mir-156 microRNA precursor family: a 90-nucleotide sequence from Carya illinoinensis.
[Rfam]
RNA sequence: GUGACAGAAGAGAGUGAGCACACAAGGUGUGUUUCGUGCAUGGACCUGAUCCCAGAAUGAAGCUUUGCGUGCUUACUCUCUAUCUGUCAC
Numbered sequence: 001g002u003g004a005c006a007g008a009a010g011a012g013a014g015u016g017a018g019c020a021c022a023c024a025a026g027g028u029g030u031g032u033u034u035c036g037u038g039c040a041u042g043g044a045c046c047u048g049a050u051c052c053c054a055g056a057a058u059g060a061a062g063c064u065u066u067g068c069g070u071g072c073u074u075a076c077u078c079u080c081u082a083u084c085u086g087u088c089a090c
Base pairs, nucleotide, nucleotide: 001090002089003088004087005086006085007084008083010080011079012078013077014076015075016074017073018072019071020070021069023067024066025065
Overview: From the family's description: This family represents the plant microRNA (miRNA) precursor mir-156. A reference for the family is Ambros (2001), "microRNAs: tiny regulators with great potential", Cell. Gene Ontology terms of the family: miRNA-mediated post-transcriptional gene silencing and RISC complex. Taxonomically the source falls in Carya (Eukaryota, Tracheophyta, Euphyllophyta, Spermatophyta).